A member of the RNA family "Acido-Lenti-1 RNA" from Cyclonatronum proteinivorum, 46 nucleotides long.
RNA sequence: CACAGGGUUUGCACCCCGUGCUAUGCUAUACCGCCCCUUCAGGGCU
Numbered sequence: 001c002a003c004a005g006g007g008u009u010u011g012c013a014c015c016c017c018g019u020g021c022u023a024u025g026c027u028a029u030a031c032c033g034c035c036c037c038u039u040c041a042g043g044g045c046u
Stems, first nucleotide, its partner, number of pairs: 001020003005016004033045004
It scores 48 bits against the family's covariance model.
Pairs were carried over by alignment from the consensus structure, which is taken from published work.